[Rfam]
Nucleotides: 135
Base pairs, nucleotide, nucleotide: 002067003066004065005064006063007062010059011058012053013052015048016047017046018045019043020042023039068133076096077095079093080092081091098131099130102127104125105124108121109120110119
Number, partner (000 for none) and nucleotide at each position: 001000g002067g003066c004065g005064g006063c007062g008000u009000g010059u011058u012053g013052c014000u015048c016047a017046g018045c019043c020042c021000c022000u023039u024000u025000c026000u027000g028000c029000u030000c031000u032000a033000u034000g035000c036000g037000c038000u039023g040000c041000u042020g043019g044000c045018g046017u047016u048015g049000c050000u051000c052013g053012c054000c055000a056000c057000c058011g059010g060000g061000c062007u063006g064005u065004u066003g067002c068133g069000c070000c071000u072000g073000g074000g075000c076096c077095u078000g079093c080092a081091g082000c083000g084000g085000a086000c087000g088000c089000c090000g091081c092080u093079g094000g095077g096076g097000c098131g099130u100000u101000g102127g103000a104125u105124c106000u107000g108121g109120c110119a111000c112000g113000a114000g115000g116000c117000g118000c119110u120109g121108u122000u123000c124105g125104a126000c127102u128000g129000c130099g131098c132000c133068u134000u135000g